Rfam assigns this 97-nucleotide sequence from Muntiacus reevesi to the family "Small nucleolar RNA SNORD116". The family has 48 seed sequences and 3,260 matches in Rfam 15.1. Pairs were carried over by alignment from the consensus structure, which was predicted with PFOLD. The literature on the family includes a 2000 paper in Proc Natl Acad Sci U S A by Cavaille et al., "Identification of brain-specific and imprinted small nucleolar RNA genes exhibiting an unusual genomic organization". By type it is a C/D-box small nucleolar RNA.
RNA sequence: GAAUUUAAAAUGUUUUUGACCCUCUCAUGCAUUCCUUGGAAAAUCUGAACAACAUGAGUGAGAACUCACUACCGUCUCCACAUCGAAACUGAGGUCC
Numbered sequence: 001g002a003a004u005u006u007a008a009a010a011u012g013u014u015u016u017u018g019a020c021c022c023u024c025u026c027a028u029g030c031a032u033u034c035c036u037u038g039g040a041a042a043a044u045c046u047g048a049a050c051a052a053c054a055u056g057a058g059u060g061a062g063a064a065c066u067c068a069c070u071a072c073c074g075u076c077u078c079c080a081c082a083u084c085g086a087a088a089c090u091g092a093g094g095u096c097c
Base pairs, nucleotide, nucleotide: 001097003095004094005093030060031059032058033057034056036052037051038050